[Rfam]
RNA sequence: CAGUUGAAUUUGAGAUCUGGAUGGGACCAAAUCUUAUUGCAGAUCGCGUGAGACAAGAUUUGGCUCUCUCCAGUAUCUCAUGUUCACUUG
Numbered sequence: 001c002a003g004u005u006g007a008a009u010u011u012g013a014g015a016u017c018u019g020g021a022u023g024g025g026a027c028c029a030a031a032u033c034u035u036a037u038u039g040c041a042g043a044u045c046g047c048g049u050g051a052g053a054c055a056a057g058a059u060u061u062g063g064c065u066c067u068c069u070c071c072a073g074u075a076u077c078u079c080a081u082g083u084u085c086a087c088u089u090g
Stems, first nucleotide, its partner, number of pairs: 005086004011080004017073005023067003027063004032058002
The family of this 90-nucleotide RNA sequence from Leersia perrieri is "MIR2275 microRNA precursor family". Its family is annotated with RISC complex and miRNA-mediated post-transcriptional gene silencing in the Gene Ontology. Rfam 15.1 lists 785 matches to the family in 111 species. Taxonomically the source falls in Leersia (Eukaryota, Tracheophyta, Mesangiospermae, Oryzeae).